Source information:
The family of this 93-nucleotide sequence from Collimonas fungivorans is "Burkholderia RNA 7 (anti-hemB)". This RNA motif was identified by computational search in b-proteobacteria Burkholderia. Co-purified with Hfq, expression confirmed by Northern blot. The family's RNA type in Rfam is small RNA.
RNA sequence: CCUCCCGCUUCCCUCCCUGAGCGGGGCCGUAUCGCUUUUGGUGAUAAGGCAUUGCGCCCUGGAGAUAUUCCCCUUUCUCCAGGGCUUUUUUAU
Numbered sequence: 001c002c003u004c005c006c007g008c009u010u011c012c013c014u015c016c017c018u019g020a021g022c023g024g025g026g027c028c029g030u031a032u033c034g035c036u037u038u039u040g041g042u043g044a045u046a047a048g049g050c051a052u053u054g055c056g057c058c059c060u061g062g063a064g065a066u067a068u069u070c071c072c073c074u075u076u077c078u079c080c081a082g083g084g085c086u087u088u089u090u091u092a093u
Stems, first nucleotide, its partner, number of pairs: 004025006027049002030046004056085010